[Rfam]
RNA sequence: CUCUGGAAAGUGGCCGAAUCGGUUUCGCUCCGGCCCACCGAAGAGGAUAAGGCGCGCUGGCCCGGUCGGCCGUAGGCAGCGCGUCCAAUCUUUCAGGUUUCGAGACAGAG
Numbered sequence: 001c002u003c004u005g006g007a008a009a010g011u012g013g014c015c016g017a018a019u020c021g022g023u024u025u026c027g028c029u030c031c032g033g034c035c036c037a038c039c040g041a042a043g044a045g046g047a048u049a050a051g052g053c054g055c056g057c058u059g060g061c062c063c064g065g066u067c068g069g070c071c072g073u074a075g076g077c078a079g080c081g082c083g084u085c086c087a088a089u090c091u092u093u094c095a096g097g098u099u100u101c102g103a104g105a106c107a108g109a110g
Stems, first nucleotide, its partner, number of pairs: 001110005012035004037098003040094002044092003051085009
This 110-nucleotide RNA from Hyphomicrobium album belongs to the Rfam family "Glycine riboswitch aptamer". The source organism's lineage runs through Bacteria, Pseudomonadati, Pseudomonadota, Hyphomicrobiales and Hyphomicrobium. Rfam links the family to the GO term glycine biosynthetic process. About the family: This family represents the bacterial glycine riboswitch.